[Rfam]
RNA sequence: GGGCGGCCUCCGCCGAGUCCGGCGCACCCUCGCGGAGCCGGAGCCGGGGACCCACCGACCUUGGGGUGAAUCGGUCCACCUGCCGUACGCGGCACGGACCGUAGGGCAUACCUUCCGAUGCAAGCGCCCGAACCCGACAGCUAACUCGGUAGGCGGACAGCGGAAGGAGCC
Dot-bracket structure: ..........((((...((((((.............))))))((((((....((.......))(((.....((((((..................))))))..((((..................))))...))).........)))))).))))................